Shown here is an 89-nucleotide sequence from Paractinoplanes tereljensis, a member of the family "c-di-GMP-II-GAG riboswitch aptamer".
RNA sequence: CCCCGGCGGGGAGAUGCAGACCCGGGCCGAGCAACAAUCGGUCACCGUCACACGGCCCGGUGAGUCAGUGGUGAGACCGCCCCCAGGCA
Numbered sequence: 001c002c003c004c005g006g007c008g009g010g011g012a013g014a015u016g017c018a019g020a021c022c023c024g025g026g027c028c029g030a031g032c033a034a035c036a037a038u039c040g041g042u043c044a045c046c047g048u049c050a051c052a053c054g055g056c057c058c059g060g061u062g063a064g065u066c067a068g069u070g071g072u073g074a075g076a077c078c079g080c081c082c083c084c085a086g087g088c089a
Stems, first nucleotide, its partner, number of pairs: 008084004013066003022060008040078002042074005
Dot-bracket structure: .......((((.(((......((((((((..........[[[[[[[......))))))))...)))...]]]]]..]]..)))).....
Its Rfam clan is "c-di-GMP_II riboswitch clan". A reference for the family is Weinberg et al. (2017), "Bioinformatic analysis of riboswitch structures uncovers variant classes with altered ligand specificity", Proc Natl Acad Sci U S A. NCBI's taxonomy places the organism under Bacteria, Bacillati, Actinomycetes, Micromonosporales, Paractinoplanes. A search with the family's covariance model found it, with a score of 52 bits.